[Rfam]
RNA: Small nucleolar RNA SNORA5
Organism: Labrus bergylta
RNA sequence: AGCAGCUUUGUCAAAUUCAGUGCUCCCUCUUAAAUAGGUUGCACUGGCCAAAAUGGCUGCAACAAUGACUCUGUAGUUCAUGGGCCCCAUAUGUCUUUACCAUGGAUGCUGGGGAUAAAUAUGUACUACAAACAAAA
Numbered sequence: 001a002g003c004a005g006c007u008u009u010g011u012c013a014a015a016u017u018c019a020g021u022g023c024u025c026c027c028u029c030u031u032a033a034a035u036a037g038g039u040u041g042c043a044c045u046g047g048c049c050a051a052a053a054u055g056g057c058u059g060c061a062a063c064a065a066u067g068a069c070u071c072u073g074u075a076g077u078u079c080a081u082g083g084g085c086c087c088c089a090u091a092u093g094u095c096u097u098u099a100c101c102a103u104g105g106a107u108g109c110u111g112g113g114g115a116u117a118a119a120u121a122u123g124u125a126c127u128a129c130a131a132a133c134a135a136a137a
Stems, first nucleotide, its partner, number of pairs: 002060004018046006026038003073129005078123001085114005